[Rfam]
RNA sequence: UCGGAGCGUUAUGGAUGGUUCUUUCUAAUUUUGAUUGAUGCCAUAGUUAAUGCUCCGAAAAUUAGAUUGGCUUCUGAUGACUACACAGGAACAGGAUACUGUGUGGACAGAUACGGGCCAUACAAUU
Numbered sequence: 001u002c003g004g005a006g007c008g009u010u011a012u013g014g015a016u017g018g019u020u021c022u023u024u025c026u027a028a029u030u031u032u033g034a035u036u037g038a039u040g041c042c043a044u045a046g047u048u049a050a051u052g053c054u055c056c057g058a059a060a061a062u063u064a065g066a067u068u069g070g071c072u073u074c075u076g077a078u079g080a081c082u083a084c085a086c087a088g089g090a091a092c093a094g095g096a097u098a099c100u101g102u103g104u105g106g107a108c109a110g111a112u113a114c115g116g117g118c119c120a121u122a123c124a125a126u127u
Stems, first nucleotide, its partner, number of pairs: 002057006015044004022037001068120006081106003086101003
Rfam assigns this 127-nucleotide sequence from Nicotiana sylvestris to the family "Small Cajal body specific RNA 8". Rfam 15.1 lists 955 matches to the family in 741 species. Lineage of the source: Eukaryota > Euphyllophyta > Magnoliopsida > Solanaceae > Nicotiana. From the family's description: scaRNAs are a specific class of small nuclear RNAs which localise to the Cajal bodies and guide the modification of RNA polymerase II transcribed spliceosomal RNAs U1, U2, U4, U5 and U12. U92 belong to the H/ACA box class of guide RNAs as it has the predicted hairpin-hinge-hairpin-tail structure, conserved H/ACA-box motifs and is found associated with GAR1.